[Rfam]
RNA sequence: CGGUUUCUGGCUUCAACAGUGCUUGAACCGAACCG
Numbered sequence: 001c002g003g004u005u006u007c008u009g010g011c012u013u014c015a016a017c018a019g020u021g022c023u024u025g026a027a028c029c030g031a032a033c034c035g
Stems, first nucleotide, its partner, number of pairs: 001035005007030001010028001012027005017021001